[Rfam]
RNA sequence: GGACAACACUCUGGAGAACAAUAUGAUUGUACCGAAGAAGUAAUCUGACCGGCAGCACAGCAACGUGUCAGAUAAUCUUUCAGGUAAAAGGACAGAGGCAGAUUU
Numbered sequence: 001g002g003a004c005a006a007c008a009c010u011c012u013g014g015a016g017a018a019c020a021a022u023a024u025g026a027u028u029g030u031a032c033c034g035a036a037g038a039a040g041u042a043a044u045c046u047g048a049c050c051g052g053c054a055g056c057a058c059a060g061c062a063a064c065g066u067g068u069c070a071g072a073u074a075a076u077c078u079u080u081c082a083g084g085u086a087a088a089a090g091g092a093c094a095g096a097g098g099c100a101g102a103u104u105u
Base pairs, nucleotide, nucleotide: 009097010096011095012094013093019029020028021027031085032084033083034081035080038079039078040077044072045071046070047069048068049067
Source information: Shown here is a 105-nucleotide RNA sequence from Sellimonas intestinalis, a member of the family "Glycine riboswitch aptamer". Its family is annotated with glycine biosynthetic process in the Gene Ontology. A search with the family's covariance model found it, with a score of 50 bits.